[Rfam]
RNA: Small nucleolar RNA Z102/R77
RNA sequence: GUGUGAAAUGAGGAAUAAUUGUUUCCCUAUUGGUUUGACUGCCGCUAUGAUGGCGUAUUAUUGCUUCAAACUUUCUGAUCACUC
Numbered sequence: 001g002u003g004u005g006a007a008a009u010g011a012g013g014a015a016u017a018a019u020u021g022u023u024u025c026c027c028u029a030u031u032g033g034u035u036u037g038a039c040u041g042c043c044g045c046u047a048u049g050a051u052g053g054c055g056u057a058u059u060a061u062u063g064c065u066u067c068a069a070a071c072u073u074u075c076u077g078a079u080c081a082c083u084c
Stems, first nucleotide, its partner, number of pairs: 003082003040055004